[Rfam]
A member of the RNA family "Glycine riboswitch aptamer" from Actinomadura meyerae, 112 nucleotides long. The source organism's lineage runs through Bacteria, Actinomycetota, Actinomycetes, Streptosporangiales and Actinomadura. Rfam links the family to the GO term glycine biosynthetic process. Rfam 15.1 lists 9,425 matches to the family in 5,228 species.
RNA sequence: GCACCUCUGGAAAGCAGGCGUCGUUCCCCGCGCGCGGGGAACGCGGCUCACCGAAGGGGAAACCCCGCGGGCGCGGGUGAAGCUCUCAGGUGCCGAUGACAGAGGGGGAGAC
Numbered sequence: 001g002c003a004c005c006u007c008u009g010g011a012a013a014g015c016a017g018g019c020g021u022c023g024u025u026c027c028c029c030g031c032g033c034g035c036g037g038g039g040a041a042c043g044c045g046g047c048u049c050a051c052c053g054a055a056g057g058g059g060a061a062a063c064c065c066c067g068c069g070g071g072c073g074c075g076g077g078u079g080a081a082g083c084u085c086u087c088a089g090g091u092g093c094c095g096a097u098g099a100c101a102g103a104g105g106g107g108g109a110g111a112c
Stems, first nucleotide, its partner, number of pairs: 002107001004105006016048002019045003050091003053087002057085003064077003